[Rfam]
RNA sequence: CCUAUUUAAUUGGUUCUGGGUCUGAAAAACUCAUAGAUUGAGUGUUGUCAUCUGCUUCGUCUCUUGUUUAACCCACGAGAUAGGAGUCAAAUAACAGCACUACAUUU
Numbered sequence: 001c002c003u004a005u006u007u008a009a010u011u012g013g014u015u016c017u018g019g020g021u022c023u024g025a026a027a028a029a030c031u032c033a034u035a036g037a038u039u040g041a042g043u044g045u046u047g048u049c050a051u052c053u054g055c056u057u058c059g060u061c062u063c064u065u066g067u068u069u070a071a072c073c074c075a076c077g078a079g080a081u082a083g084g085a086g087u088c089a090a091a092u093a094a095c096a097g098c099a100c101u102a103c104a105u106u107u
Stems, first nucleotide, its partner, number of pairs: 041101007054087005060080004
Notes
The family of this 107-nucleotide sequence from Cajanus cajan is "Small nucleolar RNA snoR97". The literature on the family includes a 2002 paper in Curr Biol by Marker et al., "Experimental RNomics: identification of 140 candidates for small non-messenger RNAs in the plant Arabidopsis thaliana". Gene Ontology terms of the family: RNA processing and nucleolus. By type it is an H/ACA-box small nucleolar RNA. The match comes from Rfam's covariance-model search (102 bits). Pairs were carried over by alignment from the consensus structure, which was predicted with WAR.